[Rfam]
A member of the RNA family "Small nucleolar RNA SNORA22" from Oncorhynchus tshawytscha, 136 nucleotides long.
Gene Ontology terms of the family: nucleolus and RNA processing.
The match comes from Rfam's covariance-model search (104 bits).
ACA22 is a member of the H/ACA class of snoRNA that guide the sites of modification of uridines to pseudouridines.
The organism belongs to Oncorhynchus, within Eukaryota.
Rfam classes the family as an H/ACA-box small nucleolar RNA.

RNA sequence: CAGCACAGUGAACACCCUUGUGUGCUUUUGUAGCUCCCCUGGAUUUUACUCUGUGCUACAGUAAAGUGUGGUCUGUAACCUCUGCAUUGGAGGAGCUGCAUUCUCCUCCACAUGUAUUCAGCAGACCAGUACAUUC
Numbered sequence: 001c002a003g004c005a006c007a008g009u010g011a012a013c014a015c016c017c018u019u020g021u022g023u024g025c026u027u028u029u030g031u032a033g034c035u036c037c038c039c040u041g042g043a044u045u046u047u048a049c050u051c052u053g054u055g056c057u058a059c060a061g062u063a064a065a066g067u068g069u070g071g072u073c074u075g076u077a078a079c080c081u082c083u084g085c086a087u088u089g090g091a092g093g094a095g096c097u098g099c100a101u102u103c104u105c106c107u108c109c110a111c112a113u114g115u116a117u118u119c120a121g122c123a124g125a126c127c128a129g130u131a132c133a134u135u136c
Base pairs, nucleotide, nucleotide: 003056004055005054006053007052008051010050014046016042017041020038022036024034025033026032058074060072062070063069082121083120084119085114086113087112089109090108091107092106093105094104095103